[Rfam]
RNA: mir-17 microRNA precursor family
RNA sequence: CUGGCAGUUCCAAAGUGCUCACAGUGCAGGUAGUUUAAAUGAACCUACUGCAGUGUGUGCACUUCAAGUAUUGCCGG
Number, nucleotide and partner (000 for none) at each position: 001c000002u000003g000004g074005c073006a072007g071008u000009u000010c068011c000012a000013a064014a063015g062016u061017g060018c059019u000020c057021a056022c055023a054024g000025u052026g051027c050028a000029g049030g048031u047032a046033g045034u000035u000036u000037a000038a000039a000040u000041g000042a000043a000044c000045c033046u032047a031048c030049u029050g027051c026052a025053g000054u023055g022056u021057g020058u000059g018060c017061a016062c015063u014064u013065c000066a000067a000068g010069u000070a000071u007072u006073g005074c004075c000076g000077g000